[Rfam]
RNA sequence: AGCUUAUCCGUGAUGUAUAAAAAAUAAAUGUCUGAACUUAUGAGUCAAUUUGUGAUUCAGAUUUCUAACUGAGAUAAGCA
Numbered sequence: 001a002g003c004u005u006a007u008c009c010g011u012g013a014u015g016u017a018u019a020a021a022a023a024a025u026a027a028a029u030g031u032c033u034g035a036a037c038u039u040a041u042g043a044g045u046c047a048a049u050u051u052g053u054g055a056u057u058c059a060g061a062u063u064u065c066u067a068a069c070u071g072a073g074a075u076a077a078g079c080a
Base pairs, nucleotide, nucleotide: 002079003078004077005076006075007074008073
RNA: Small nucleolar RNA SNORD72
Organism: Xenopus laevis